Source information: This 83-nucleotide RNA from Eptatretus burgeri belongs to the Rfam family "mir-219 microRNA precursor family". The base pairs follow the family's consensus structure, which was predicted with RNAalifold. Rfam 15.1 lists 1,318 matches to the family in 774 species.
[Rfam]
Nucleotides: 083
Base pairs, nucleotide, nucleotide: 002082003081004080005079006078007077010074011073012072014071015070016069017068018067021064022063023062024061025060026059027058028057029056030055031054
Number, partner (000 for none) and nucleotide at each position: 001000c002082u003081c004080g005079c006078u007077g008000u009000u010074g011073a012072u013000u014071g015070u016069c017068c018067a019000a020000a021064c022063g023062c024061a025060a026059u027058u028057c029056u030055u031054g032000c033000g034000c035000u036000g037000c038000u039000u040000c041000c042000u043000c044000c045000u046000g047000c048000g049000a050000c051000a052000u053000c054031c055030a056029a057028g058027g059026g060025u061024u062023g063022c064021g065000u066000g067018u068017g069016g070015a071014c072012a073011u074010c075000u076000g077007c078006a079005g080004c081003g082002g083000g